Shown here is a 69-nucleotide RNA sequence from Aotus nancymaae, a member of the family "Small nucleolar RNA SNORD19". The source organism's lineage runs through Eukaryota, Vertebrata, Dipnotetrapodomorpha, Tetrapoda and Aotus. Its Rfam clan is "SNORD19 clan". The match comes from Rfam's covariance-model search (36 bits). The pairing is the family consensus, mapped onto this sequence.
[Rfam]
RNA sequence: GUGUGAUGAUGAAAAUAUUCUACAGUUAGAUAAUGGUGAUGGUUGUACAACUCUGAACAUAGAAAAGCC
Numbered sequence: 001g002u003g004u005g006a007u008g009a010u011g012a013a014a015a016u017a018u019u020c021u022a023c024a025g026u027u028a029g030a031u032a033a034u035g036g037u038g039a040u041g042g043u044u045g046u047a048c049a050a051c052u053c054u055g056a057a058c059a060u061a062g063a064a065a066a067g068c069c
Stems, first nucleotide, its partner, number of pairs: 001060004
A reference for the family is Huttenhofer et al. (2001), "RNomics: an experimental approach that identifies 201 candidates for novel, small, non-messenger RNAs in mouse", EMBO J. It is annotated as a C/D-box small nucleolar RNA.